[Rfam]
RNA sequence: ACACGAGAAGGGAGGUGGUUCCCGAAAUGUACGGAAACCGGACGCGUGAGGUGGCUGCGGGCUAAAGCGCCCGUCGUCGCACGCACCCAGUGCGGUGCCCGGCGGGAACGCCAGGCGCCAAUCCCAAGCAGUCACCCGACCCGCGGGCUCGCCGGUACGUCCGGCCGGCUCCUCCCCACUGCAGGGGGAGGGACCCGAGCCCGCGGGUCGCCUGCU
Numbered sequence: 001a002c003a004c005g006a007g008a009a010g011g012g013a014g015g016u017g018g019u020u021c022c023c024g025a026a027a028u029g030u031a032c033g034g035a036a037a038c039c040g041g042a043c044g045c046g047u048g049a050g051g052u053g054g055c056u057g058c059g060g061g062c063u064a065a066a067g068c069g070c071c072c073g074u075c076g077u078c079g080c081a082c083g084c085a086c087c088c089a090g091u092g093c094g095g096u097g098c099c100c101g102g103c104g105g106g107a108a109c110g111c112c113a114g115g116c117g118c119c120a121a122u123c124c125c126a127a128g129c130a131g132u133c134a135c136c137c138g139a140c141c142c143g144c145g146g147g148c149u150c151g152c153c154g155g156u157a158c159g160u161c162c163g164g165c166c167g168g169c170u171c172c173u174c175c176c177c178a179c180u181g182c183a184g185g186g187g188g189a190g191g192g193a194c195c196c197g198a199g200c201c202c203g204c205g206g207g208u209c210g211c212c213u214g215c216u
Stems, first nucleotide, its partner, number of pairs: 015058005060119003067116002072110003137210013151169006
Shown here is a 216-nucleotide RNA sequence from Streptomyces subrutilus, a member of the family "Actinobacteria sRNA Ms_IGR-5". The base pairs follow the family's consensus structure. For this family Rfam cites "Identification of small RNAs in Mycobacterium smegmatis using heterologous Hfq" (Li et al., RNA, 2013). It is annotated as a small RNA.